[Rfam]
The family of this 60-nucleotide RNA sequence from a Sphingomonadales bacterium is "terC RNA".
RNA sequence: CUGCGGGACCGGGCCCCUCUGGCGAUAGCUGAAAAGCAAUCGUGAUGUCGGACCGCAUCG
Numbered sequence: 001c002u003g004c005g006g007g008a009c010c011g012g013g014c015c016c017c018u019c020u021g022g023c024g025a026u027a028g029c030u031g032a033a034a035a036g037c038a039a040u041c042g043u044g045a046u047g048u049c050g051g052a053c054c055g056c057a058u059c060g
Stems, first nucleotide, its partner, number of pairs: 006054002009051004022043005028037002
Pairs were carried over by alignment from the consensus structure, which is taken from published work.